[Rfam]
RNA sequence: GCAUCUAAAUCUUUCCUGUUCCUUGCAAUACAGUGCAGGAUUGGGGACACAUGGUGCUACAGCAAAGCAGAGUGAAUCCAGACAGGUUUCUUUCACUUAUACUGGGACUUGUCUCUACAACUCUGCAACAUUU
Numbered sequence: 001g002c003a004u005c006u007a008a009a010u011c012u013u014u015c016c017u018g019u020u021c022c023u024u025g026c027a028a029u030a031c032a033g034u035g036c037a038g039g040a041u042u043g044g045g046g047a048c049a050c051a052u053g054g055u056g057c058u059a060c061a062g063c064a065a066a067g068c069a070g071a072g073u074g075a076a077u078c079c080a081g082a083c084a085g086g087u088u089u090c091u092u093u094c095a096c097u098u099a100u101a102c103u104g105g106g107a108c109u110u111g112u113c114u115c116u117a118c119a120a121c122u123c124u125g126c127a128a129c130a131u132u133u
Base pairs, nucleotide, nucleotide: 001057002056003055004054005053013047014046015045016044017043018042021039022038067126068125069124070123071122072121080114081113082112083111084110085109086108087107093105094104095103
Notes:
This 133-nucleotide RNA from Alligator mississippiensis belongs to the Rfam family "Small nucleolar RNA SNORA55". The base pairs follow the family's consensus structure, which was predicted with PFOLD. About the family: ACA55 is a member of the H/ACA class of snoRNA that guide the sites of modification of uridines to pseudouridines. The match comes from Rfam's covariance-model search (124 bits).